[Rfam]
RNA sequence: CUAGCACUUUCACAGAUCUUCCCCUAGACAGUAGGGCCAGGAUUUGGUAGCUGGUGCUUAGAGAAAACCCUUGAUUGCAUCUUUGCCCUGGUACUAUACCAGUGGCAGGUGUCACUCACUGGAACAGAG
Numbered sequence: 001c002u003a004g005c006a007c008u009u010u011c012a013c014a015g016a017u018c019u020u021c022c023c024c025u026a027g028a029c030a031g032u033a034g035g036g037c038c039a040g041g042a043u044u045u046g047g048u049a050g051c052u053g054g055u056g057c058u059u060a061g062a063g064a065a066a067a068c069c070c071u072u073g074a075u076u077g078c079a080u081c082u083u084u085g086c087c088c089u090g091g092u093a094c095u096a097u098a099c100c101a102g103u104g105g106c107a108g109g110u111g112u113c114a115c116u117c118a119c120u121g122g123a124a125c126a127g128a129g
Stems, first nucleotide, its partner, number of pairs: 003058006013046003017042004022036004069122002072118003076114002079112002083108005088102004
Shown here is a 129-nucleotide RNA from Castor canadensis, a member of the family "Small nucleolar RNA SNORA30/SNORA37 family". On this family, see Huttenhofer et al., EMBO J 2001: "RNomics: an experimental approach that identifies 201 candidates for novel, small, non-messenger RNAs in mouse". A search with the family's covariance model found it, with a score of 126 bits. Rfam describes the family as follows. The members of this family belong to the H/ACA class of snoRNAs that guide the sites of modification of uridines to pseudouridines. This family includes human ACA30 (SNORA30), ACA37 (SNORA37) and the mouse homolog MBI-26. Both ACA37 and ACA30 are predicted to guide the pseudouridylation of residue U4643 of 28S rRNA. The source organism's lineage runs through Eukaryota, Sarcopterygii, Boreoeutheria, Euarchontoglires and Castor. Its family is annotated with RNA processing and nucleolus in the Gene Ontology.